[Rfam]
Rfam assigns this 321-nucleotide RNA from Actinocatenispora sera to the family "Actinobacteria sRNA Ms_IGR-5".
A search with the family's covariance model found it, with a score of 66 bits.
NCBI's taxonomy places the organism under Bacteria, Bacillati, Actinomycetota, Actinomycetes, Actinocatenispora.

RNA sequence: ACGUGGGAAAGGAGGUGGUCCGAUACAUGUGUGGUAAACGGACUCGCGAGGUGGUUGUCCGCUAGCCGCCGUUCGGACGACUGCGAGAUUGGUCGGAGUGUGCUCGCGGAGAACGCGAGCCUCAUCUCUCCGUUUCGCCUCCUGGGGGCGCAGCCCCCAGACCCGCGCCGGCGGGCAUCGCCCCCGGCACCCCCAGCCGCGAGUGGCUGAGGUGGGUGGGCGACGGCCGGCGAAUCCCAGGCAACCAUCCGGCCCAUGGGUCCCAGGCUUUGUCCACCUGGGCCUUCCAGCUUGGAAGGAAGCACCCAUGGGUCGCUUCAU
Numbered sequence: 001a002c003g004u005g006g007g008a009a010a011g012g013a014g015g016u017g018g019u020c021c022g023a024u025a026c027a028u029g030u031g032u033g034g035u036a037a038a039c040g041g042a043c044u045c046g047c048g049a050g051g052u053g054g055u056u057g058u059c060c061g062c063u064a065g066c067c068g069c070c071g072u073u074c075g076g077a078c079g080a081c082u083g084c085g086a087g088a089u090u091g092g093u094c095g096g097a098g099u100g101u102g103c104u105c106g107c108g109g110a111g112a113a114c115g116c117g118a119g120c121c122u123c124a125u126c127u128c129u130c131c132g133u134u135u136c137g138c139c140u141c142c143u144g145g146g147g148g149c150g151c152a153g154c155c156c157c158c159a160g161a162c163c164c165g166c167g168c169c170g171g172c173g174g175g176c177a178u179c180g181c182c183c184c185c186g187g188c189a190c191c192c193c194c195a196g197c198c199g200c201g202a203g204u205g206g207c208u209g210a211g212g213u214g215g216g217u218g219g220g221c222g223a224c225g226g227c228c229g230g231c232g233a234a235u236c237c238c239a240g241g242c243a244a245c246c247a248u249c250c251g252g253c254c255c256a257u258g259g260g261u262c263c264c265a266g267g268c269u270u271u272g273u274c275c276a277c278c279u280g281g282g283c284c285u286u287c288c289a290g291c292u293u294g295g296a297a298g299g300a301a302g303c304a305c306c307c308a309u310g311g312g313u314c315g316c317u318u319c320a321u
Stems, first nucleotide, its partner, number of pairs: 014059006060232004065227002068224001070222002073219002250315012264294006